[Rfam]
RNA sequence: CUGCGUUGGUGGCAUAUCUCCCUCUCUCGGGCGAUGUAAUCACGCAUAUCCGUCAUCAGACAGUGCAGAUUGCUUCAGCCCGCUAAUAGCGGGUUUUUUUAU
Numbered sequence: 001c002u003g004c005g006u007u008g009g010u011g012g013c014a015u016a017u018c019u020c021c022c023u024c025u026c027u028c029g030g031g032c033g034a035u036g037u038a039a040u041c042a043c044g045c046a047u048a049u050c051c052g053u054c055a056u057c058a059g060a061c062a063g064u065g066c067a068g069a070u071u072g073c074u075u076c077a078g079c080c081c082g083c084u085a086a087u088a089g090c091g092g093g094u095u096u097u098u099u100u101a102u
Base pairs, nucleotide, nucleotide: 009043010042011041012040014037015036016035017034018033020031021030022029077095078094079093080092081091082090083089